[Rfam]
RNA sequence: GCCGGCGUGGCGGAACUGGCAGACGCGCGGGACUUAAAAUCCCGUGGUGGCGACAUCGUACCGGUUCGAUUCCGGUCGCCGGCA
Numbered sequence: 001g002c003c004g005g006c007g008u009g010g011c012g013g014a015a016c017u018g019g020c021a022g023a024c025g026c027g028c029g030g031g032a033c034u035u036a037a038a039a040u041c042c043c044g045u046g047g048u049g050g051c052g053a054c055a056u057c058g059u060a061c062c063g064g065u066u067c068g069a070u071u072c073c074g075g076u077c078g079c080c081g082g083c084a
Base pairs, nucleotide, nucleotide: 001083002082003081004080005079006078007077010026011025012024028044029043030042031041032040060076061075062074063073064072
Shown here is an 84-nucleotide RNA sequence from Clostridium sp. SY8519, a member of the family "tRNA".
Rfam 15.1 lists 5,335,975 matches to the family in 14,413 species.
A search with the family's covariance model found it, with a score of 58 bits.
Taxonomically the source falls in Clostridium (Bacteria, Clostridia, Eubacteriales, Clostridiaceae).
The base pairs follow the family's consensus structure, which is taken from published work.
Rfam classes the family as a transfer RNA.
Its family is annotated with triplet codon-amino acid adaptor activity in the Gene Ontology.